[Rfam]
RNA sequence: AGGAUCAUAAGGCUCUUGUGCUGUUGAAUCUGCCCAGUGAUGGGUGCAGGCUUGUACCAGGCAGCCCAACCCUGACCUAAAGUAAAUUUCCAGGAGAAGUCUUUCCUGGGUUUUGAAUUCGUGGUAACAGGUGUGAGCAUUCUAGCAGCCGUUAGAUGAUCACGUAUGAUACUGCAAACAGGA
Numbered sequence: 001a002g003g004a005u006c007a008u009a010a011g012g013c014u015c016u017u018g019u020g021c022u023g024u025u026g027a028a029u030c031u032g033c034c035c036a037g038u039g040a041u042g043g044g045u046g047c048a049g050g051c052u053u054g055u056a057c058c059a060g061g062c063a064g065c066c067c068a069a070c071c072c073u074g075a076c077c078u079a080a081a082g083u084a085a086a087u088u089u090c091c092a093g094g095a096g097a098a099g100u101c102u103u104u105c106c107u108g109g110g111u112u113u114u115g116a117a118u119u120c121g122u123g124g125u126a127a128c129a130g131g132u133g134u135g136a137g138c139a140u141u142c143u144a145g146c147a148g149c150c151g152u153u154a155g156a157u158g159a160u161c162a163c164g165u166a167u168g169a170u171a172c173u174g175c176a177a178a179c180a181g182g183a
Stems, first nucleotide, its partner, number of pairs: 002072002011066004015061004020057001024049003028045003089110003093105004118178002121175006128168002134162003138158004144153003
Record summary
The record is a 183-nucleotide RNA sequence from Propithecus coquereli, which matches "Small Cajal body specific RNA 16" in Rfam. The family's RNA type in Rfam is small Cajal body RNA. A search with the family's covariance model found it, with a score of 150 bits. For this family Rfam cites "Cajal body-specific small nuclear RNAs: a novel class of 2'-O-methylation and pseudouridylation guide RNAs" (Darzacq et al., EMBO J, 2002). The base pairs follow the family's consensus structure, which was predicted with RNAfold. Rfam links the family to the GO terms RNA processing and nucleolus. scaRNAs are a specific class of small nuclear RNAs which localise to the Cajal bodies and guide the modification of RNA polymerase II transcribed spliceosomal RNAs U1, U2, U4, U5 and U12. ACA47 belongs to the H/ACA box class of guide RNAs as it has the predicted hairpin-hinge-hairpin-tail structure, the conserved H/ACA-box motifs and is found associated with GAR1. ACA47 is predicted to guide the pseudouridylation of residue U5 of the U1 spliceosomal snRNA.